[Rfam]
RNA sequence: GUGAGGUGAUGACGGAGUUUAUCCAUUCUCUGAGUGCAGUGGUGCUGCCCUCCUGCAGCACUCCGGUUCCUGUUCUAGGCACCGGGUGCUGUGCAGCUUCCAGAGACUCUUCAGUCUCCCAGUGUUCUACUGGGGGCUGCUGUGGUGUGUGGCUGGCUGCCUGUAGGAGUGAAGUGGUGCGCUGGCAGGGUCAGAGCCCCUCUUUGGGGGGGCUGUGUCCCUGCUGAGAUGAGGGAUGAUGUCUGAUCAC
Numbered sequence: 001g002u003g004a005g006g007u008g009a010u011g012a013c014g015g016a017g018u019u020u021a022u023c024c025a026u027u028c029u030c031u032g033a034g035u036g037c038a039g040u041g042g043u044g045c046u047g048c049c050c051u052c053c054u055g056c057a058g059c060a061c062u063c064c065g066g067u068u069c070c071u072g073u074u075c076u077a078g079g080c081a082c083c084g085g086g087u088g089c090u091g092u093g094c095a096g097c098u099u100c101c102a103g104a105g106a107c108u109c110u111u112c113a114g115u116c117u118c119c120c121a122g123u124g125u126u127c128u129a130c131u132g133g134g135g136g137c138u139g140c141u142g143u144g145g146u147g148u149g150u151g152g153c154u155g156g157c158u159g160c161c162u163g164u165a166g167g168a169g170u171g172a173a174g175u176g177g178u179g180c181g182c183u184g185g186c187a188g189g190g191u192c193a194g195a196g197c198c199c200c201u202c203u204u205u206g207g208g209g210g211g212g213c214u215g216u217g218u219c220c221c222u223g224c225u226g227a228g229a230u231g232a233g234g235g236a237u238g239a240u241g242u243c244u245g246a247u248c249a250c
Base pairs, nucleotide, nucleotide: 010249011248012247017242018241020239023235024234026233027232028231030228031227034224035223039186040185042183043179044178045177046176047175048174049171050169051168052167053166054165056163057162061088063086064085066082067081069079070078071077093160094159095158096157097156098155106146107145112139113138114137115136116135118134119133120132121131122130123129124128188221189220190219192217193216195214197212198211199210200209201208
Record summary
The family of this 250-nucleotide RNA from Atlantisia rogersi is "Small nucleolar RNA SNORD17". By type it is a C/D-box small nucleolar RNA. Its family is annotated with RNA processing and nucleolus in the Gene Ontology. The match comes from Rfam's covariance-model search (106 bits). The family has 19 seed sequences and 1,015 matches in Rfam 15.1.